[Rfam]
RNA sequence: AUGUUCGUAAUGAACAGACCGAAGACAGUGGGGGACCUUGAGUCAUAAUUAUCCUACCGAGGGCAAACAUUUUAAGAAAUGAUUGAACUCUCUAUGUCUUUUGGCCGUAGGGUUUUUUAUUUGAAAAU
Numbered sequence: 001a002u003g004u005u006c007g008u009a010a011u012g013a014a015c016a017g018a019c020c021g022a023a024g025a026c027a028g029u030g031g032g033g034g035a036c037c038u039u040g041a042g043u044c045a046u047a048a049u050u051a052u053c054c055u056a057c058c059g060a061g062g063g064c065a066a067a068c069a070u071u072u073u074a075a076g077a078a079a080u081g082a083u084u085g086a087a088c089u090c091u092c093u094a095u096g097u098c099u100u101u102u103g104g105c106c107g108u109a110g111g112g113u114u115u116u117u118u119a120u121u122u123g124a125a126a127a128u
Base pairs, nucleotide, nucleotide: 028057029056030055031054032053033052034044035043036042090112091111092110093109094108095107096106098104
Background:
Shown here is a 128-nucleotide RNA sequence from Lactococcus fujiensis, a member of the family "Ribosomal protein L10 leader". Pairs were carried over by alignment from the consensus structure, which was predicted with CMfinder. This family is a putative r-protein leader autoregulatory structure found in B. subtilis and other low-GC Gram-positive bacteria. It is located in the 5' untranslated regions of mRNAs encoding ribosomal proteins L10 and L12 (rplJ-rplL). A Rho-independent transcription terminator structure that is probably involved in regulation is included at the 3' end. NCBI's taxonomy places the organism under Bacteria, Bacilli, Streptococcaceae, Lactococcus, Lactococcus fujiensis. Rfam links the family to the GO term regulation of gene expression.